[Rfam]
RNA sequence: GCGAGACGGGUGGACCCGUGGCCGAGCGCGACCGAUAAGCUGUUCUCGGACGACACCGGGCGCAGCCCCCGAACCGUCCGCCAUUGAUCAGCCAGCAGCCGCUGCAACCCCAGGGAG
Numbered sequence: 001g002c003g004a005g006a007c008g009g010g011u012g013g014a015c016c017c018g019u020g021g022c023c024g025a026g027c028g029c030g031a032c033c034g035a036u037a038a039g040c041u042g043u044u045c046u047c048g049g050a051c052g053a054c055a056c057c058g059g060g061c062g063c064a065g066c067c068c069c070c071g072a073a074c075c076g077u078c079c080g081c082c083a084u085u086g087a088u089c090a091g092c093c094a095g096c097a098g099c100c101g102c103u104g105c106a107a108c109c110c111c112a113g114g115g116a117g
Stems, first nucleotide, its partner, number of pairs: 048079005057071004093104004
Overview:
Shown here is a 117-nucleotide sequence from Streptomyces sporangiiformans, a member of the family "Streptomyces-metK RNA". The family's RNA type in Rfam is small RNA. Pairs were carried over by alignment from the consensus structure, which is taken from published work. The organism belongs to Streptomyces, within Bacteria.